[Rfam]
RNA sequence: GUCAACGACCCACCGUUAAACCUCUUGGGAGGUUAUAACGGGGGCUUCUUGGAGUCCACAAGUUGACCAGCCUAAGCCCUUCGACUUCGCUCAGGGCUACGUUUCUAAAGCCAUCACACCUCGGAAUACGUGCUAGUUCCCUGCUCUGUGGUUAACAGUUAAACAUUCCUAAACGGGUUAAGAAAGUGCUGUUAGCUUGACAAACUUUAGAAACCUUGGCGAAGCAUACUUAAC
Number, nucleotide and partner (000 for none) at each position: 001g067002u066003c065004a064005a063006c062007g000008a000009c000010c044011c043012a000013c041014c040015g039016u038017u037018a036019a000020a000021c000022c000023u000024c000025u000026u000027g000028g000029g000030a000031g000032g000033u000034u000035a000036u018037a017038a016039c015040g014041g013042g000043g011044g010045c000046u000047u000048c000049u000050u000051g000052g000053a000054g000055u000056c000057c000058a000059c000060a000061a000062g006063u005064u004065g003066a002067c001068c000069a000070g220071c219072c218073u000074a216075a098076g097077c096078c095079c094080u000081u000082c000083g000084a000085c000086u000087u000088c000089g000090c000091u000092c000093a000094g079095g078096g077097c076098u075099a000100c000101g214102u213103u212104u211105c210106u209107a208108a207109a206110g205111c000112c000113a000114u000115c000116a149117c148118a000119c000120c143121u000122c000123g140124g139125a138126a137127u136128a230129c000130g000131u226132g225133c224134u223135a000136g127137u126138u125139c124140c123141c000142u000143g120144c000145u000146c000147u000148g117149u116150g000151g196152u195153u194154a193155a192156c191157a190158g189159u188160u000161a000162a000163a187164c186165a000166u184167u183168c000169c182170u181171a000172a179173a178174c000175g000176g000177g000178u173179u172180a000181a170182g169183a167184a166185a000186g164187u163188g159189c158190u157191g156192u155193u154194a153195g152196c151197u000198u000199g000200a000201c000202a000203a000204a000205c110206u109207u108208u107209a106210g105211a104212a103213a102214c101215c000216u074217u000218g072219g071220c070221g000222a000223a134224g133225c132226a131227u000228a000229c000230u128231u000232a000233a000234c000
HNH endonuclease-associated RNA and ORF (HEARO) RNA: a 234-nucleotide RNA from Dactylococcopsis salina. The family's RNA type in Rfam is non-coding RNA gene. The match comes from Rfam's covariance-model search (135 bits).